[Rfam]
RNA sequence: AAAAGUAACGGGCAAACUAUCCGAAAGGAAAGGACGCAAAACCACUGGCCUAAAUCGUCAAGACACGGUCGCAGGGUUGCACUU
Numbered sequence: 001a002a003a004a005g006u007a008a009c010g011g012g013c014a015a016a017c018u019a020u021c022c023g024a025a026a027g028g029a030a031a032g033g034a035c036g037c038a039a040a041a042c043c044a045c046u047g048g049c050c051u052a053a054a055u056c057g058u059c060a061a062g063a064c065a066c067g068g069u070c071g072c073a074g075g076g077u078u079g080c081a082c083u084u
Base pairs, nucleotide, nucleotide: 012037013036017032018031020029021028022027040078041077042076043075045074046073047072048069049068050067055063056062
RNA: c-di-GMP-I riboswitch aptamer